[Rfam]
RNA sequence: AAUAGGGAAAAGGAAGCCAUGAGUAUCUCAGAGUGGUGGGCAUGGGAACAUGGAGGAAAGCCUAGAUUUCUUGGCCACUUAAUUUAGGGGCAAAGAUUGUUUUGUGUUUUCCUGAUGCCUCCCAUGCCUAUUGUUCUUAGGUAUUCCUCCCUUUUUCCUAUUUGC
Dot-bracket structure: ........(((((..(....(((..(((.((((((.(((((((((((.(((.(.(((((((............................................)))))))).)))..))))))))))).)))))).)))..)))..)..))))).........
Numbered sequence: 001a002a003u004a005g006g007g008a009a010a011a012g013g014a015a016g017c018c019a020u021g022a023g024u025a026u027c028u029c030a031g032a033g034u035g036g037u038g039g040g041c042a043u044g045g046g047a048a049c050a051u052g053g054a055g056g057a058a059a060g061c062c063u064a065g066a067u068u069u070c071u072u073g074g075c076c077a078c079u080u081a082a083u084u085u086a087g088g089g090g091c092a093a094a095g096a097u098u099g100u101u102u103u104g105u106g107u108u109u110u111c112c113u114g115a116u117g118c119c120u121c122c123c124a125u126g127c128c129u130a131u132u133g134u135u136c137u138u139a140g141g142u143a144u145u146c147c148u149c150c151c152u153u154u155u156u157c158c159u160a161u162u163u164g165c
Stems, first nucleotide, its partner, number of pairs: 009156005016149001021146003026141003030137006037130011049117003053113001055112007